[Rfam]
RNA sequence: GCGAUGAGCUGAAUUGUGUAAGUCGGUGAUCACGUCCUUGUGACAACAAACGAUGUGGCGUUUGCUGAUUAUCCGCCUCAAUUUUUUUGCAAGUGGGCUUCCAUAGGAAAUGGGAGCC
Numbered sequence: 001g002c003g004a005u006g007a008g009c010u011g012a013a014u015u016g017u018g019u020a021a022g023u024c025g026g027u028g029a030u031c032a033c034g035u036c037c038u039u040g041u042g043a044c045a046a047c048a049a050a051c052g053a054u055g056u057g058g059c060g061u062u063u064g065c066u067g068a069u070u071a072u073c074c075g076c077c078u079c080a081a082u083u084u085u086u087u088u089g090c091a092a093g094u095g096g097g098c099u100u101c102c103a104u105a106g107g108a109a110a111u112g113g114g115a116g117c118c
Base pairs, nucleotide, nucleotide: 014081015080016079018077024075025074026073027071028070029069030068031067034044035043047064048063050061051060052059096118097117098116099115100114101113102112103111104110